[Rfam]
RNA sequence: UCUUAGAUGAACAUCGGUGGUCCGGUGUGUGGGCUUCAAACCCGUAGCUGACGAGAGUCAGAGUGGUUCGAUUCCACCCUCUGGGC
Numbered sequence: 001u002c003u004u005a006g007a008u009g010a011a012c013a014u015c016g017g018u019g020g021u022c023c024g025g026u027g028u029g030u031g032g033g034c035u036u037c038a039a040a041c042c043c044g045u046a047g048c049u050g051a052c053g054a055g056a057g058u059c060a061g062a063g064u065g066g067u068u069c070g071a072u073u074c075c076a077c078c079c080u081c082u083g084g085g086c
Base pairs, nucleotide, nucleotide: 002085003084004083005082006081007080009078012027013026014025015024016023017022028046029045030044031043032042033041048061049060050059051058052057063077064076065075066074